[Rfam]
RNA sequence: GAGUUCACCGGGUCGUGCAGGAUGAAGAACCGUAGAGGUUCGAGCAGCGCGCAGCGAUACGACAACGCGCAGCGUUGCCCGCAGGGUGAGGCCACAGGCCGAAUCAAUCCUGCACGACCCACCC
Numbered sequence: 001g002a003g004u005u006c007a008c009c010g011g012g013u014c015g016u017g018c019a020g021g022a023u024g025a026a027g028a029a030c031c032g033u034a035g036a037g038g039u040u041c042g043a044g045c046a047g048c049g050c051g052c053a054g055c056g057a058u059a060c061g062a063c064a065a066c067g068c069g070c071a072g073c074g075u076u077g078c079c080c081g082c083a084g085g086g087u088g089a090g091g092c093c094a095c096a097g098g099c100c101g102a103a104u105c106a107a108u109c110c111u112g113c114a115c116g117a118c119c120c121a122c123c124c
Base pairs, nucleotide, nucleotide: 015115016114017113018112019111020110021109023107033088034087039083041081042080047055063077064076065075066074067073068072
The record is a 124-nucleotide RNA sequence, which matches "RtT RNA" in Rfam. On this family, see Bosl and Kersten, Nucleic Acids Res 1991: "A novel RNA product of the tyrT operon of Escherichia coli". The family's RNA type in Rfam is cis-regulatory element. It scores 61 bits against the family's covariance model.